[Rfam]
RNA sequence: GGUCCUGGGCAUGACGUAAAAGUGCAACCGUCCAAGUGGUGCAACCACGUAAAAAUAGCGUA
Numbered sequence: 001g002g003u004c005c006u007g008g009g010c011a012u013g014a015c016g017u018a019a020a021a022g023u024g025c026a027a028c029c030g031u032c033c034a035a036g037u038g039g040u041g042c043a044a045c046c047a048c049g050u051a052a053a054a055a056u057a058g059c060g061u062a
Stems, first nucleotide, its partner, number of pairs: 002015003009025004036048003